[Rfam]
RNA sequence: CGGUGUGAGAUGGUCACAUGAGGUACAGUGUGAUGGUGGAACACACUGCAUCCCAAGUGAUCACCCUACAUGGC
Number, nucleotide and partner (000 for none) at each position: 001c000002g000003g071004u070005g069006u068007g067008a000009g065010a000011u063012g062013g061014u060015c059016a058017c057018a000019u055020g054021a000022g000023g051024u050025a000026c048027a047028g000029u000030g000031u000032g000033a000034u000035g000036g000037u000038g000039g000040a000041a000042c000043a000044c000045a000046c000047u027048g026049c000050a024051u023052c000053c000054c020055a019056a000057g017058u016059g015060a014061u013062c012063a011064c000065c009066c000067u007068a006069c005070a004071u003072g000073g000074c000
Annotation
The family of this 74-nucleotide sequence from Ornithorhynchus anatinus is "mir-1421 microRNA precursor family". The base pairs follow the family's consensus structure, which was predicted with RNAalifold.